[Rfam]
RNA: Bacillus sRNA ncr1575
Organism: Priestia veravalensis
RNA sequence: UAAUAAAUACGAGAGGAAUGAUGGAUGAACAAUGGAUAACUAACCUAAUUUUUUACAUUUGAAAUUUCAUAAUUUCAAGUCUUAAAAACUUAGGAUUAGUCUGCCCAUUUUUCAACCACCCCUACAAGCGCUCUGCUUAUAGGCUUCUUUAUGCGGGACAAUAAUGCGGACUCGACUAAUCCUUCCAAUGAAAUUGGGAGGAUUUUUUU
Number, nucleotide and partner (000 for none) at each position: 001u000002a000003a000004u000005a000006a000007a000008u000009a000010c000011g000012a000013g000014a000015g113016g112017a111018a110019u000020g000021a000022u107023g106024g105025a000026u000027g000028a000029a100030c099031a000032a000033u000034g000035g000036a000037u000038a000039a000040c000041u098042a097043a096044c000045c094046u093047a091048a090049u000050u088051u087052u086053u085054u000055a000056c000057a080058u079059u078060u077061g076062a075063a074064a073065u072066u000067u000068c000069a000070u000071a000072a065073u064074u063075u062076c061077a060078a059079g058080u057081c000082u000083u000084a000085a053086a052087a051088a050089c000090u048091u047092a000093g046094g045095a000096u043097u042098a041099g030100u029101c000102u000103g000104c000105c024106c023107a022108u000109u000110u018111u017112u016113c015114a000115a000116c000117c000118a000119c000120c157121c156122c155123u000124a000125c000126a000127a148128g144129c143130g000131c000132u000133c000134u000135g000136c000137u000138u000139a000140u000141a000142g000143g129144c128145u000146u000147c000148u127149u000150u000151a000152u000153g000154c000155g122156g121157g120158a000159c000160a000161a000162u000163a000164a000165u000166g000167c000168g000169g000170a000171c000172u000173c000174g000175a000176c000177u000178a204179a203180u202181c201182c200183u199184u198185c197186c196187a195188a194189u000190g000191a000192a000193a000194u188195u187196g186197g185198g184199a183200g182201g181202a180203u179204u178205u000206u000207u000208u000209u000